[Rfam]
The family of this 131-nucleotide RNA from Upupa epops is "Small Cajal body specific RNA 15". Its family is annotated with Cajal body, nucleolus and RNA processing in the Gene Ontology. A reference for the family is Darzacq et al. (2002), "Cajal body-specific small nuclear RNAs: a novel class of 2'-O-methylation and pseudouridylation guide RNAs", EMBO J. Rfam classes the family as a small Cajal body RNA.
Nucleotides: 131
Stems, first nucleotide, its partner, number of pairs: 003060006010051002018045005024039001026035003071124006078117001083112003086108004
Number, partner (000 for none) and nucleotide at each position: 001000g002000u003060g004059g005058a006057g007056g008055a009000c010051u011050a012000a013000g014000a015000a016000a017000g018045u019044g020043g021042a022041g023000c024039c025000a026035g027034u028033g029000g030000c031000a032000u033028u034027a035026u036000a037000u038000u039024g040000a041022c042021u043020c044019c045018a046000u047000u048000g049000a050011u051010a052000c053000u054000a055008u056007c057006c058005u059004c060003c061000u062000a063000a064000a065000u066000u067000a068000a069000a070000u071124g072123g073122u074121g075120g076119a077000a078117g079000a080000a081000c082000a083112a084111g085110g086108c087107c088106u089105g090000c091000c092000g093000g094000u095000g096000a097000g098000a099000u100000g101000g102000g103000g104000u105089c106088a107087g108086g109000a110085c111084c112083u113000a114000c115000u116000u117078c118000g119076u120075c121074u122073a123072c124071c125000u126000a127000c128000a129000g130000a131000a